[Rfam]
RNA sequence: AUCCAGAGUCGGGGUUUUGGGGGCGAGAUGAGCUUGCUUGGUACCCAACUGGCCCACAAAGUCCCGCUUCCGGGC
Numbered sequence: 001a002u003c004c005a006g007a008g009u010c011g012g013g014g015u016u017u018u019g020g021g022g023g024c025g026a027g028a029u030g031a032g033c034u035u036g037c038u039u040g041g042u043a044c045c046c047a048a049c050u051g052g053c054c055c056a057c058a059a060a061g062u063c064c065c066g067c068u069u070c071c072g073g074g075c
Stems, first nucleotide, its partner, number of pairs: 003073002006070003010066004015061005021055004026050002029047002

Overview: Shown here is a 75-nucleotide sequence from Naja naja, a member of the family "mir-193 microRNA precursor family". For this family Rfam cites "Cloning and characterization of microRNAs from porcine skeletal muscle and adipose tissue" (Cho et al., Mol Biol Rep, 2010). The source organism's lineage runs through Eukaryota, Vertebrata, Gnathostomata, Sauria and Naja. The family's consensus secondary structure was predicted with RNAalifold. A search with the family's covariance model found it, with a score of 71 bits.